[Rfam]
RNA sequence: UCGAAGCUCCAUCUACAAAUGGAUAAAUUUUAAAAUUUCGUUUUUAGUGUUUUUAGUUUAGUGUAUACGAGUUUUUGAGCGUAAAGGGGCAAUACCGGUUUCUUGACCGAACAAGAAAUUGGGUAUUGCCCCUUU
Number, nucleotide and partner (000 for none) at each position: 001u000002c000003g000004a000005a000006g000007c000008u023009c022010c021011a020012u019013c000014u000015a000016c000017a000018a000019a012020u011021g010022g009023a008024u000025a000026a000027a000028u000029u000030u000031u000032a000033a000034a000035a000036u000037u000038u000039c000040g000041u000042u000043u000044u000045u000046a000047g000048u000049g000050u000051u000052u000053u000054u000055a000056g000057u000058u000059u000060a000061g000062u000063g000064u000065a000066u000067a000068c000069g000070a000071g000072u000073u000074u000075u000076u000077g000078a000079g000080c000081g000082u000083a135084a134085a133086g132087g131088g130089g129090c128091a127092a126093u125094a124095c123096c000097g000098g119099u000100u117101u116102c115103u114104u113105g000106a000107c000108c000109g000110a000111a000112c000113a104114a103115g102116a101117a100118a000119u098120u000121g000122g000123g095124u094125a093126u092127u091128g090129c089130c088131c087132c086133u085134u084135u083
This 135-nucleotide sequence from Gymnocarpos przewalskii belongs to the Rfam family "Plastid-psbA-1 3UTR RNA". The family's RNA type in Rfam is cis-regulatory element. Rfam's curators put it in the seed alignment. The base pairs follow the family's consensus structure, which was predicted with LocARNA. From the family's description: Plastid psbA-1 is a non-coding RNA (ncRNA) present in plastids. It was identified in inverted repeat sequences in the 3 prime untranslate region (3UTR) of photosystem II quinone-binding protein (psbA). The organism belongs to Gymnocarpos, within Eukaryota. Its Rfam clan is "Plastid-psbA 3UTR RNA clan".